[Rfam]
Nucleotides: 078
Stems, first nucleotide, its partner, number of pairs: 002028004010018003035078005041073010
Number, partner (000 for none) and nucleotide at each position: 001000g002028u003027u004026g005025g006000a007000a008000u009000c010018g011017u012016g013000u014000g015000c016012u017011g018010c019000a020000c021000a022000a023000a024000a025005u026004u027003a028002a029000a030000g031000u032000u033000g034000u035078a036077a037076a038075g039074u040000g041073a042072a043071a044070a045069c046068c047067c048066c049065c050064g051000u052000u053000c054000c055000u056000u057000a058000c059000c060000a061000g062000u063000u064050c065049g066048g067047g068046g069045g070044u071043u072042u073041u074039a075038c076037u077036u078035u
This 78-nucleotide sequence from Escherichia coli belongs to the Rfam family "Oppression of Hydrophobic ORF by sRNA". The family's RNA type in Rfam is antitoxin RNA. A reference for the family is Fozo et al. (2008), "Small toxic proteins and the antisense RNAs that repress them", Microbiol Mol Biol Rev.